[Rfam]
RNA sequence: UAAUGUUACAGCUCUUUUCGAAUUUGUCUAGCAGAUUUUCAGUUUUUUAGCAGAAACCCA
Numbered sequence: 001u002a003a004u005g006u007u008a009c010a011g012c013u014c015u016u017u018u019c020g021a022a023u024u025u026g027u028c029u030a031g032c033a034g035a036u037u038u039u040c041a042g043u044u045u046u047u048u049a050g051c052a053g054a055a056a057c058c059c060a
Stems, first nucleotide, its partner, number of pairs: 034057001037056004042051003
Shown here is a 60-nucleotide RNA sequence from Callithrix jacchus, a member of the family "U7 small nuclear RNA". The base pairs follow the family's consensus structure, which was predicted with PFOLD.